A member of the RNA family "L17 ribosomal protein downstream element" from Aerococcus sanguinicola, 66 nucleotides long. Pairs were carried over by alignment from the consensus structure, which is taken from published work.

RNA sequence: AGAGCGUUAUGAUGAUGGGGUAACCCAAGUCUAGCUCUUUCACUUCCGGGGCAGGUGCUCCGGAAG
Numbered sequence: 001a002g003a004g005c006g007u008u009a010u011g012a013u014g015a016u017g018g019g020g021u022a023a024c025c026c027a028a029g030u031c032u033a034g035c036u037c038u039u040u041c042a043c044u045u046c047c048g049g050g051g052c053a054g055g056u057g058c059u060c061c062g063g064a065a066g
Stems, first nucleotide, its partner, number of pairs: 002037004011031003017026003043066009